Rfam assigns this 245-nucleotide RNA to the family "Streptomyces sRNA 4677". A search with the family's covariance model found it, with a score of 202 bits. The base pairs follow the family's consensus structure.
RNA sequence: AACUCCGGUGCCGAAGGCGGUCUCUUUUCCAAGAACUCGUGGGAGAAAGAACCCCACCGAGCCCCACCCCUCCCGCCCGUCGCGGGCGGUCACUCGGGCGGGUGAACAUCACCGGCUCAGCUGGAUUUCGCGUCCCCCAACUGCCCUACGCUCAGCGCACACAACCCCACACAUGCAUCGGCCCCCGGCCGGGACUAGCGAUCCCGAUCGAGGGCCUGACCACCGAGGAAGAACGGACCUUCCUG
Numbered sequence: 001a002a003c004u005c006c007g008g009u010g011c012c013g014a015a016g017g018c019g020g021u022c023u024c025u026u027u028u029c030c031a032a033g034a035a036c037u038c039g040u041g042g043g044a045g046a047a048a049g050a051a052c053c054c055c056a057c058c059g060a061g062c063c064c065c066a067c068c069c070c071u072c073c074c075g076c077c078c079g080u081c082g083c084g085g086g087c088g089g090u091c092a093c094u095c096g097g098g099c100g101g102g103u104g105a106a107c108a109u110c111a112c113c114g115g116c117u118c119a120g121c122u123g124g125a126u127u128u129c130g131c132g133u134c135c136c137c138c139a140a141c142u143g144c145c146c147u148a149c150g151c152u153c154a155g156c157g158c159a160c161a162c163a164a165c166c167c168c169a170c171a172c173a174u175g176c177a178u179c180g181g182c183c184c185c186c187g188g189c190c191g192g193g194a195c196u197a198g199c200g201a202u203c204c205c206g207a208u209c210g211a212g213g214g215c216c217u218g219a220c221c222a223c224c225g226a227g228g229a230a231g232a233a234c235g236g237a238c239c240u241u242c243c244u245g
Stems, first nucleotide, its partner, number of pairs: 007224004016077004090105006120156005180216005186210002191205004227243005

Background:
Rfam's curators write: Located in the intergenic region between anti-sigma factor SCO4677 gene and a putative regulatory protein gene SCO4676. scr4677 expression requires the SCO4677 activity and scr4677 sRNA itself seem to affect the levels of the SCO4676-associated transcripts.